[Rfam]
RNA sequence: GUCUCGCCGCCUGAACCUUUCGUCUCAACCUCUACGUUUGGGUAGGUGAGCAAAGUUUCAGGUGUGCGAGCGA
Numbered sequence: 001g002u003c004u005c006g007c008c009g010c011c012u013g014a015a016c017c018u019u020u021c022g023u024c025u026c027a028a029c030c031u032c033u034a035c036g037u038u039u040g041g042g043u044a045g046g047u048g049a050g051c052a053a054a055g056u057u058u059c060a061g062g063u064g065u066g067c068g069a070g071c072g073a
Stems, first nucleotide, its partner, number of pairs: 003070005008064007017055004024050004029046003
Rfam assigns this 73-nucleotide sequence from Strongylus vulgaris to the family "mir-87 microRNA precursor family". Rfam links the family to the GO terms RISC complex and miRNA-mediated post-transcriptional gene silencing.